[Rfam]
The record is a 79-nucleotide RNA sequence from Flavobacterium cyanobacteriorum, which matches "Flavo-1 RNA" in Rfam.
It scores 59 bits against the family's covariance model.
NCBI's taxonomy places the organism under Bacteria, Pseudomonadati, Flavobacteriia, Flavobacteriaceae, Flavobacterium.
RNA sequence: GACUAGCCCUGAUGGGAGCGGCAUCCUCCCCGCCGCCCGCUUUUGCGGCGGGGAGAUAGAGUGGACAGCAGGACAUGGC
Number, nucleotide and partner (000 for none) at each position: 001g000002a000003c000004u000005a000006g000007c000008c000009c071010u070011g069012a000013u067014g066015g000016g000017a000018g062019c061020g000021g000022c000023a057024u056025c055026c000027u000028c053029c052030c051031c050032g049033c048034c047035g046036c000037c000038c000039g000040c000041u000042u000043u000044u000045g000046c035047g034048g033049c032050g031051g030052g029053g028054a000055g025056a024057u023058a000059g000060a000061g019062u018063g000064g000065a000066c014067a013068g000069c011070a010071g009072g000073a000074c000075a000076u000077g000078g000079c000
Pairs were carried over by alignment from the consensus structure, which is taken from published work.